[Rfam]
RNA sequence: ACUGGCAAGGGUGACACCCUUGCCCUCACCUAGACCCUAGUUCAUUGAUGAGAGCACCUAGUUGUUCUGAGCCAGU
Numbered sequence: 001a002c003u004g005g006c007a008a009g010g011g012u013g014a015c016a017c018c019c020u021u022g023c024c025c026u027c028a029c030c031u032a033g034a035c036c037c038u039a040g041u042u043c044a045u046u047g048a049u050g051a052g053a054g055c056a057c058c059u060a061g062u063u064g065u066u067c068u069g070a071g072c073c074a075g076u
Base pairs, nucleotide, nucleotide: 001076002075003074004073005072006071